The family of this 48-nucleotide RNA from Ligilactobacillus apodemi is "PreQ1 (pre queuosine) riboswitch aptamer".
Rfam's curators write: This family is a bacterial riboswitch that binds to the metabolite preQ1, an intermediate in the biosynthesis of the modified nucleoside queuosine from GTP. One example of this riboswitch is located in the leader of the Bacillus subtilis ykvJKLM (queCDEF) operon which encodes four genes necessary for queuosine production.
A reference for the family is Reader et al. (2004), "Identification of four genes necessary for biosynthesis of the modified nucleoside queuosine", J Biol Chem.
Rfam links the family to the GO term queuosine biosynthetic process.
RNA sequence: AAUCAGGUGGUUCGCAACCAUCCCACCUUAAUAAAAAACUAGGAGAGA
Dot-bracket structure: .....(((((.....[......)))))............]........
Numbered sequence: 001a002a003u004c005a006g007g008u009g010g011u012u013c014g015c016a017a018c019c020a021u022c023c024c025a026c027c028u029u030a031a032u033a034a035a036a037a038a039c040u041a042g043g044a045g046a047g048a
Stems, first nucleotide, its partner, number of pairs: 006027005016040001